Shown here is a 70-nucleotide sequence from Dendroctonus ponderosae, a member of the family "mir-252 microRNA precursor family". Lineage of the source: Eukaryota > Opisthokonta > Mandibulata > Curculionoidea > Dendroctonus. The family is grouped with related families in Rfam's "mir-252 microRNA precursor family". Gene Ontology terms of the family: miRNA-mediated post-transcriptional gene silencing and RISC complex. The family's consensus secondary structure was predicted with RNAalifold.

RNA sequence: UUCUGUUACUAAGUACUAGUGCCGCAGGAGUGCACUUGAUCUCCUGCUGCUCAAGUGCUUAUCAAUGGGC
Numbered sequence: 001u002u003c004u005g006u007u008a009c010u011a012a013g014u015a016c017u018a019g020u021g022c023c024g025c026a027g028g029a030g031u032g033c034a035c036u037u038g039a040u041c042u043c044c045u046g047c048u049g050c051u052c053a054a055g056u057g058c059u060u061a062u063c064a065a066u067g068g069g070c
Base pairs, nucleotide, nucleotide: 002069003068004067005066006065007064010061011060012059013058014057015056016055017054019052024047025046026045027044028043029042030041